[Rfam]
RNA sequence: UCAUCACCAGCAUCAUCCUGACUAGUCUUUCAGGCGAUGACGGCUGGAAGACGAUUAGGUCUUCCUCUGGUUUGAACGUAUAAAGCCCUCGGAAGAUCGCUCUUCCGAGGGCUUUUUUAA
Numbered sequence: 001u002c003a004u005c006a007c008c009a010g011c012a013u014c015a016u017c018c019u020g021a022c023u024a025g026u027c028u029u030u031c032a033g034g035c036g037a038u039g040a041c042g043g044c045u046g047g048a049a050g051a052c053g054a055u056u057a058g059g060u061c062u063u064c065c066u067c068u069g070g071u072u073u074g075a076a077c078g079u080a081u082a083a084a085g086c087c088c089u090c091g092g093a094a095g096a097u098c099g100c101u102c103u104u105c106c107g108a109g110g111g112c113u114u115u116u117u118u119a120a
Base pairs, nucleotide, nucleotide: 008043010041011039012038013037014036017034018033019032020031021030046065047064048063049062050061051060080117082115083114084113085112086111087110088109089108090107091106092105093104094103095102
Dot-bracket structure: .......(.(((((..(((((........))))).)))).).)..((((((........))))))..............(.((((((((((((((......)))))))))))))).)...